[Rfam]
RNA sequence: AUUGCAACUUCAAGGUUAUAGCAGAUGCACUCAUGGCACGGCCCGGUCAGAUUUCAGUGAAUCUGCAAAUUCUGCU
Numbered sequence: 001a002u003u004g005c006a007a008c009u010u011c012a013a014g015g016u017u018a019u020a021g022c023a024g025a026u027g028c029a030c031u032c033a034u035g036g037c038a039c040g041g042c043c044c045g046g047u048c049a050g051a052u053u054u055c056a057g058u059g060a061a062u063c064u065g066c067a068a069a070u071u072c073u074g075c076u
Base pairs, nucleotide, nucleotide: 014043015042016041017040020076021075022074023073024072025071027039048065049064050063051062052061053060054059
RNA: Mammalian CPEB3 ribozyme